[Rfam]
RNA sequence: GACGACCGGCCGGAUGCGCACGCCUCCGGCCCACAAGUGGAGGCUCCGAUCUCCCACCUGGCCGCCCUCACGGGUGGCGGGUCACCGGUCAGGUGGCGCCCAUCGUUCCGUACGGAUGAUGGAGCCGCCCGACGCGCCCCGUGUGGAACACGGCGGUGCUCCGGUAUCCCUUGGAGCUCCUGCCUGUGUCCGUCCCGGGGCAUUUUUC
Number, nucleotide and partner (000 for none) at each position: 001g000002a000003c000004g090005a089006c088007c087008g086009g085010c000011c000012g027013g026014a000015u000016g000017c000018g000019c000020a000021c000022g000023c000024c000025u000026c013027c012028g083029g082030c081031c080032c079033a000034c060035a059036a000037g057038u056039g055040g054041a052042g051043g000044c000045u000046c000047c000048g000049a000050u000051c042052u041053c000054c040055c039056a038057c037058c000059u035060g034061g078062c077063c076064g075065c074066c073067c072068u000069c000070a000071c000072g067073g066074g065075u064076g063077g062078c061079g032080g031081g030082u029083c028084a000085c009086c008087g007088g006089u005090c004091a000092g129093g128094u127095g126096g125097c000098g000099c000100c122101c121102a120103u119104c118105g117106u116107u115108c000109c000110g000111u000112a000113c000114g000115g107116a106117u105118g104119a103120u102121g101122g100123a000124g000125c096126c095127g094128c093129c092130c000131g000132a000133c000134g000135c000136g201137c200138c199139c198140c197141g196142u192143g191144u000145g000146g000147a000148a000149c188150a187151c186152g184153g183154c182155g181156g180157u000158g177159c176160u175161c174162c173163g000164g000165u000166a000167u000168c000169c000170c000171u000172u000173g162174g161175a160176g159177c158178u000179c000180c156181u155182g154183c153184c152185u000186g151187u150188g149189u000190c000191c143192g142193u000194c000195c000196c141197g140198g139199g138200g137201c136202a000203u000204u000205u000206u000207u000208c000